[Rfam]
RNA: Ribosomal protein L20 leader
RNA sequence: UGGUAAAAGAAGAAGCACCCGCUUCUCGCCUGAUUGACGCGAUAUAUGCAGUUGGCAGGUUUUGCGAUUCAAUGUAAUUCUUACGCUAUUCGUAUGUAUACAUGGUGCGGGUCUUCUACUACCCGCACUUUUUUUAUGUU
Dot-bracket structure: ..........((((((....)))))).(((.....(((((.......)).)))....))).............................................(((((((........))))))).............